[Rfam]
RNA sequence: GGAGGGGAGACGUCCCUGGUGGGACGGCCGGGCUUCAAACCCGGUGGUCGGCGCCACGCGCCGAUGGGUGGGUUCGACUCCCACGCUCCUCC
Numbered sequence: 001g002g003a004g005g006g007g008a009g010a011c012g013u014c015c016c017u018g019g020u021g022g023g024a025c026g027g028c029c030g031g032g033c034u035u036c037a038a039a040c041c042c043g044g045u046g047g048u049c050g051g052c053g054c055c056a057c058g059c060g061c062c063g064a065u066g067g068g069u070g071g072g073u074u075c076g077a078c079u080c081c082c083a084c085g086c087u088c089c090u091c092c
Base pairs, nucleotide, nucleotide: 001092002091003090004089005088006087007086009084011026012025013024014023015022016021027045028044029043030042031041032040047065048064049063050062051061069083070082071081072080
Description
Rfam assigns this 92-nucleotide RNA sequence from Variovorax sp. Sphag1AA to the family "Selenocysteine transfer RNA". NCBI's taxonomy places the organism under Bacteria, Pseudomonadati, Pseudomonadota, Burkholderiales, Variovorax. Rfam 15.1 lists 4,211 matches to the family in 3,344 species. Rfam links the family to the GO term triplet codon-amino acid adaptor activity.